RNA sequence: ACCACAUGGGAAAGUGCUACACGGCUAGCUCCUUUCGAAUCCUCCAGGGCUUGAUCGCAGCAAAGGUAGUUAGUUGUAGCAGCGCGAUGUGGUUAGCUUUCCCACCC
Numbered sequence: 001a002c003c004a005c006a007u008g009g010g011a012a013a014g015u016g017c018u019a020c021a022c023g024g025c026u027a028g029c030u031c032c033u034u035u036c037g038a039a040u041c042c043u044c045c046a047g048g049g050c051u052u053g054a055u056c057g058c059a060g061c062a063a064a065g066g067u068a069g070u071u072a073g074u075u076g077u078a079g080c081a082g083c084g085c086g087a088u089g090u091g092g093u094u095a096g097c098u099u100u101c102c103c104a105c106c107c
Stems, first nucleotide, its partner, number of pairs: 008103008017092005022086002024083002